Rfam assigns this 145-nucleotide RNA from Thauera terpenica to the family "radC RNA". Rfam 15.1 lists 500 matches to the family in 142 species. Lineage of the source: Bacteria > Pseudomonadota > Betaproteobacteria > Thauera > Thauera terpenica.
RNA sequence: AAUCUGCCCCCAUGUCCGUCGGCGAUGCCGACAACAUGCCCAGGUAGCCCAGACCCUCAAGGCUACGGUGCGUUGCGCCGCACUGGUCUUUCUCUUCGCCAAGCCGUUCCCGGCGCUUUCUUCCACCCCUUGGGGCAGCGUCUGC
Number, nucleotide and partner (000 for none) at each position: 001a000002a000003u000004c000005u000006g000007c000008c000009c000010c000011c038012a037013u036014g035015u033016c000017c000018g032019u031020c030021g029022g028023c027024g000025a000026u000027g023028c022029c021030g020031a019032c018033a015034a000035c014036a013037u012038g011039c000040c000041c000042a000043g000044g066045u065046a064047g063048c062049c061050c000051a000052g088053a087054c086055c085056c000057u000058c000059a000060a000061g049062g048063c047064u046065a045066c044067g084068g083069u082070g081071c080072g079073u000074u000075g000076c000077g000078c000079c072080g071081c070082a069083c068084u067085g055086g054087u053088c052089u000090u000091u000092c000093u000094c000095u000096u000097c000098g000099c000100c000101a000102a000103g000104c000105c000106g000107u000108u000109c000110c000111c000112g000113g000114c000115g145116c144117u000118u000119u000120c000121u000122u000123c138124c000125a000126c135127c134128c133129c000130u000131u000132g000133g128134g127135g126136c000137a000138g123139c000140g000141u000142c000143u000144g116145c115